[Rfam]
The family of this 143-nucleotide RNA sequence is "Group II catalytic intron D1-D4-4". From the family's description: Group II introns are found in rRNA, tRNA and mRNA of organelles in fungi, plants and protists, and also in mRNA in bacteria. The match comes from Rfam's covariance-model search (83 bits). A reference for the family is Lehmann and Schmidt (2003), "Group II introns: structure and catalytic versatility of large natural ribozymes", Crit Rev Biochem Mol Biol. Rfam 15.1 lists 840 matches to the family in 506 species. Gene Ontology term of the family: Group II intron splicing.

RNA sequence: UUGCUGGUGAAAGUCCAGCCACAGGAAUUGGCUAUUUACCUGUGUAGUUAUAUCGGACAUCCAUUCAGGUGACUGGAUGGGUGAAAGCUCCGAAGUAAAAGCACUUGUGCAAAGUGCGAGCAACCUAUCAGGUUGUAGCAUAA
Numbered sequence: 001u002u003g004c005u006g007g008u009g010a011a012a013g014u015c016c017a018g019c020c021a022c023a024g025g026a027a028u029u030g031g032c033u034a035u036u037u038a039c040c041u042g043u044g045u046a047g048u049u050a051u052a053u054c055g056g057a058c059a060u061c062c063a064u065u066c067a068g069g070u071g072a073c074u075g076g077a078u079g080g081g082u083g084a085a086a087g088c089u090c091c092g093a094a095g096u097a098a099a100a101g102c103a104c105u106u107g108u109g110c111a112a113a114g115u116g117c118g119a120g121c122a123a124c125c126u127a128u129c130a131g132g133u134u135g136u137a138g139c140a141u142a143a
Base pairs, nucleotide, nucleotide: 020044021043022042023041024040053093054092055091056090058083059082060081061080062079063078067074068073101117102116103115104114105113106112120136121135122134